[Rfam]
RNA sequence: UUGUAGGAUGUAUUACCUAUGUCUUAGAGUCCAUAAGUAUUAAUGAUUUGAUUAUAUCAUUCUGUCUGUCUAUAUGCAAUUUAAAGAACCUGGUGGAAUACCAGGUUCUUUUUUUA
Numbered sequence: 001u002u003g004u005a006g007g008a009u010g011u012a013u014u015a016c017c018u019a020u021g022u023c024u025u026a027g028a029g030u031c032c033a034u035a036a037g038u039a040u041u042a043a044u045g046a047u048u049u050g051a052u053u054a055u056a057u058c059a060u061u062c063u064g065u066c067u068g069u070c071u072a073u074a075u076g077c078a079a080u081u082u083a084a085a086g087a088a089c090c091u092g093g094u095g096g097a098a099u100a101c102c103a104g105g106u107u108c109u110u111u112u113u114u115u116a
Base pairs, nucleotide, nucleotide: 033073034072035071037069038068039065040064043061083111084110085109086108087107088106089105090104091103092102093101
RNA: Bacillus sRNA ncr1015
Organism: Paenibacillus lutrae